Ribosomal protein L10 leader: a 166-nucleotide sequence from Orenia metallireducens. The match comes from Rfam's covariance-model search (66 bits). The base pairs follow the family's consensus structure, which was predicted with CMfinder. NCBI's taxonomy places the organism under Bacteria, Bacillati, Bacillota, Clostridia, Orenia. The literature on the family includes a 2015 paper in Nucleic Acids Res by Yakhnin et al., "Ribosomal protein L10(L12)4 autoregulates expression of the Bacillus subtilis rplJL operon by a transcription attenuation mechanism".
[Rfam]
RNA sequence: AAAUAAUACAGUUGAAAGCUGUAGACAGUAGGUGCUUUUACAAGCUUAAAUCUACCUACCGAGGCUGGAGCGACUUGUACUUGAUAAUAUGCAGUAUAAUCUUUUAUACUGUUCGUAUAUAGUUAAAAAGUCUCCAGCAAAGCUGGAGACUUUUUACUUUUUAUUA
Numbered sequence: 001a002a003a004u005a006a007u008a009c010a011g012u013u014g015a016a017a018g019c020u021g022u023a024g025a026c027a028g029u030a031g032g033u034g035c036u037u038u039u040a041c042a043a044g045c046u047u048a049a050a051u052c053u054a055c056c057u058a059c060c061g062a063g064g065c066u067g068g069a070g071c072g073a074c075u076u077g078u079a080c081u082u083g084a085u086a087a088u089a090u091g092c093a094g095u096a097u098a099a100u101c102u103u104u105u106a107u108a109c110u111g112u113u114c115g116u117a118u119a120u121a122g123u124u125a126a127a128a129a130g131u132c133u134c135c136a137g138c139a140a141a142g143c144u145g146g147a148g149a150c151u152u153u154u155u156a157c158u159u160u161u162u163a164u165u166a
Stems, first nucleotide, its partner, number of pairs: 028059006034045003129151010